Record summary
The record is a 48-nucleotide RNA from Lentivirus humimdef1, which matches "HIV Ribosomal frameshift signal" in Rfam. From the family's description: This family represents the HIV Ribosomal frameshift signal.
RNA sequence: UUAGGGAAGGUCUGGCCUUCCCACAAGGGGAGGCCAGGGAACUUUCUU
Numbered sequence: 001u002u003a004g005g006g007a008a009g010g011u012c013u014g015g016c017c018u019u020c021c022c023a024c025a026a027g028g029g030g031a032g033g034c035c036a037g038g039g040a041a042c043u044u045u046c047u048u
Base pairs, nucleotide, nucleotide: 004048005047006046007045008044009043010042011038012037013036014035015034016033017032018031019030020029021028

The literature on the family includes a 2005 paper in J Mol Biol by Staple and Butcher, "Solution structure and thermodynamic investigation of the HIV-1 frameshift inducing element".
Rfam links the family to the GO term viral translational frameshifting.
By type it is a frameshift element.
Rfam's curators put it in the seed alignment.